[Rfam]
RNA sequence: UAUUUCGCCGACCCAGUACUCAGUGUAGGGUCUGUGUGUGAUCCGACUACAGCUACAUCUGAUUACUGGGUCAGUGAUGACGUCA
Numbered sequence: 001u002a003u004u005u006c007g008c009c010g011a012c013c014c015a016g017u018a019c020u021c022a023g024u025g026u027a028g029g030g031u032c033u034g035u036g037u038g039u040g041a042u043c044c045g046a047c048u049a050c051a052g053c054u055a056c057a058u059c060u061g062a063u064u065a066c067u068g069g070g071u072c073a074g075u076g077a078u079g080a081c082g083u084c085a
Stems, first nucleotide, its partner, number of pairs: 013069006020062003023058006032052004